[Rfam]
RNA sequence: AACAUCAAUAAUAUCGCGAAUGCAAUACCACAUUACUGACUCCAGUUCUUAUGGUUGUCAGGAGAGGAUUCAAUUUUGAACCCAACGUCUCUCUUGUUUCGGUUACUGCUAAGCGUAGAUUAAAUUAAGGACGUUGCUGGGCGCCUUGUGUUGAUCGUUUCGACGAUGUGAGACAUUGGGAAUCAGCUGUACCUACAUUC
Numbered sequence: 001a002a003c004a005u006c007a008a009u010a011a012u013a014u015c016g017c018g019a020a021u022g023c024a025a026u027a028c029c030a031c032a033u034u035a036c037u038g039a040c041u042c043c044a045g046u047u048c049u050u051a052u053g054g055u056u057g058u059c060a061g062g063a064g065a066g067g068a069u070u071c072a073a074u075u076u077u078g079a080a081c082c083c084a085a086c087g088u089c090u091c092u093c094u095u096g097u098u099u100c101g102g103u104u105a106c107u108g109c110u111a112a113g114c115g116u117a118g119a120u121u122a123a124a125u126u127a128a129g130g131a132c133g134u135u136g137c138u139g140g141g142c143g144c145c146u147u148g149u150g151u152u153g154a155u156c157g158u159u160u161c162g163a164c165g166a167u168g169u170g171a172g173a174c175a176u177u178g179g180g181a182a183u184c185a186g187c188u189g190u191a192c193c194u195a196c197a198u199u200c
Stems, first nucleotide, its partner, number of pairs: 015115003022109003026105002029102001036061004042054003062095005067089003129193002131190003144180002148176005155166004
RNA: Small nucleolar RNA snR32
Organism: Tetrapisispora phaffii